[Rfam]
RNA sequence: AUAUGCCUAACUUGUCGGCAUAUAAAUGCAAGUACACUCACGCGCUGAACAGAGACAGCGGAUUUAUAAAUUAAACUGACAUAAAGAGUGUGGAAAGGAAUA
Number, nucleotide and partner (000 for none) at each position: 001a000002u000003a000004u000005g019006c018007c017008u000009a000010a033011c032012u031013u030014g029015u000016c000017g007018g006019c005020a000021u000022a000023u000024a000025a000026a000027u000028g000029c014030a013031a012032g011033u010034a000035c090036a089037c088038u087039c086040a000041c000042g000043c060044g059045c058046u057047g000048a000049a000050c000051a000052g000053a000054g000055a000056c000057a046058g045059c044060g043061g000062a000063u000064u000065u000066a000067u000068a000069a000070a000071u000072u000073a000074a000075a000076c000077u000078g000079a000080c000081a000082u000083a000084a000085a000086g039087a038088g037089u036090g035091u000092g000093g000094a000095a000096a000097g000098g000099a000100a000101u000102a000
The record is a 102-nucleotide RNA sequence, which matches "GP20-a RNA" in Rfam.
The base pairs follow the family's consensus structure, which is taken from published work.
Rfam's curators put it in the seed alignment.
Rfam classes the family as a cis-regulatory element.